[Rfam]
RNA sequence: GCUGUGAAGAGGUAGAAAGAGAGACCUUAAGAGCGCUAGGAAUGGGAACAUGUAGAAAAGCCAAACUUAUUCGUUUUCACCCGCGCCGAAGGUGCAAACAUUAUGUUUGGUAUUUUUCUGAUGCCUCCCAUUCCUAUGGUUCUUGAGCACUCCUUCCUCUUCAUUUUGGCA
Dot-bracket structure: ........((((..(((...(((..(((((((((..(((((((((((.(((...((((((....................................................))))))..)))..)))))))))))..)))))))))..))).)))..)))).........